Shown here is a 126-nucleotide RNA from Pluvianellus socialis, a member of the family "Small nucleolar RNA SNORA65". By type it is an H/ACA-box small nucleolar RNA. U65 belongs to the H/ACA class of snoRNAs which are thought to guide the sites of modification of uridines to pseudouridines. A reference for the family is Huttenhofer et al. (2001), "RNomics: an experimental approach that identifies 201 candidates for novel, small, non-messenger RNAs in mouse", EMBO J. Clan: SNORA65 clan.
RNA sequence: CCCGCCACUGUACCUGUCUUGUCUAGUGACUCGUCCAGUCCAGAGGUGAGCUGACAGAAAAUGCUCACUUAGGAAACAGAGUUAUUCUUCUUGUGGGUAACUCUGUGCCGAAGUCUGCAAACAAGU
Numbered sequence: 001c002c003c004g005c006c007a008c009u010g011u012a013c014c015u016g017u018c019u020u021g022u023c024u025a026g027u028g029a030c031u032c033g034u035c036c037a038g039u040c041c042a043g044a045g046g047u048g049a050g051c052u053g054a055c056a057g058a059a060a061a062u063g064c065u066c067a068c069u070u071a072g073g074a075a076a077c078a079g080a081g082u083u084a085u086u087c088u089u090c091u092u093g094u095g096g097g098u099a100a101c102u103c104u105g106u107g108c109c110g111a112a113g114u115c116u117g118c119a120a121a122c123a124a125g126u
Base pairs, nucleotide, nucleotide: 005046006045008043009042010041018033021030022029023028062119063118064117067114068113069112072109073108077105078104079103080102081101082100085097086096087095